[Rfam]
RNA sequence: GUUGGCUAUGGGGACAUGGUUCCUACAACCAUAGGUGGGAAGAUAGUGGGCUCUCUAUGUGCUAUUGCAGGUGUAUUAACAAUUGCCUUACCAGUGCCGGUCAUAGUCUCCAAU
Number, nucleotide and partner (000 for none) at each position: 001g114002u113003u000004g111005g110006c000007u000008a107009u106010g000011g104012g000013g102014a101015c100016a000017u000018g097019g000020u000021u094022c000023c000024u000025a000026c000027a000028a000029c000030c000031a000032u000033a000034g000035g000036u000037g077038g076039g000040a074041a000042g000043a000044u000045a000046g000047u000048g000049g063050g062051c061052u000053c000054u000055c000056u000057a000058u000059g000060u000061g051062c050063u049064a000065u000066u000067g000068c000069a000070g000071g000072u000073g000074u040075a000076u038077u037078a000079a000080c000081a000082a000083u000084u000085g000086c000087c000088u000089u000090a000091c000092c000093a000094g021095u000096g000097c018098c000099g000100g015101u014102c013103a000104u011105a000106g009107u008108c000109u000110c005111c004112a000113a002114u001
Background
Potassium channel RNA editing signal: a 114-nucleotide sequence from Geotrypetes seraphini. Pairs were carried over by alignment from the consensus structure, which is taken from published work. On this family, see Bhalla et al., Nat Struct Mol Biol 2004: "Control of human potassium channel inactivation by editing of a small mRNA hairpin". About the family: This family represents a group of sequences related to the human potassium channel Kv1.1 hairpin element which directs the efficient modification of an adenosine to inosine by an adenosine deaminase acting on RNA (ADAR). The ADAR modification causes an isoleucine/valine recoding event which lies in the ion-conducting pore of the potassium channel. Lineage of the source: Eukaryota > Chordata > Gnathostomata > Euteleostomi > Geotrypetes. A search with the family's covariance model found it, with a score of 102 bits.